Rfam assigns this 227-nucleotide RNA from Clostridium cavendishii to the family "Lysine riboswitch aptamer". Taxonomically the source falls in Clostridium cavendishii (Bacteria, Bacillati, Clostridia, Eubacteriales).

[Rfam]
Nucleotides: 227
Stems, first nucleotide, its partner, number of pairs: 008220004016084004021078004032068008088117011118144011146212007
Number, partner (000 for none) and nucleotide at each position: 001000a002000c003000c004000u005000a006000a007000g008220g009219u010218a011217g012000a013000g014000g015000u016084g017083c018082u019081a020000u021078u022077u023076u024075c025000a026000a027000g028000a029000g030000u031000a032068a033067u034066u035065a036064u037063u038062a039061g040000g041000a042000a043000c044000u045000a046000u047000a048000c049000a050000a051000g052000a053000a054000g055000u056000u057000a058000u059000g060000a061039u062038u063037a064036a065035u066034a067033a068032u069000g070000a071000a072000a073000g074000g075024g076023g077022a078021a079000u080000u081019u082018a083017g084016c085000c086000g087000a088117a089116g090115a091114a092113a093112a094111u095110u096109u097108a098107a099000g100000c101000u102000u103000g104000u105000g106000a107098u108097u109096a110095g111094a112093u113092u114091u115090u116089c117088u118144g119143g120142u121141u122140a123139u124138a125137u126136a127135u128134a129000u130000a131000a132000g133000a134128u135127a136126u137125a138124u139123a140122u141121a142120a143119u144118u145000g146212u147211c148210a149209c150208u151207u152206a153000a154000u155000u156000a157000a158000g159000u160000a161000u162000a163000a164000a165000a166000u167000u168000u169000c170000a171000u172000a173000a174000c175000u176000u177000u178000a179000u180000g181000a182000u183000u184000u185000u186000u187000a188000u189000u190000u191000a192000c193000u194000g195000u196000u197000u198000a199000a200000g201000u202000a203000u204000u205000u206152u207151a208150a209149g210148u211147g212146g213000a214000g215000a216000g217011c218010u219009a220008c221000a222000a223000g224000g225000u226000a227000c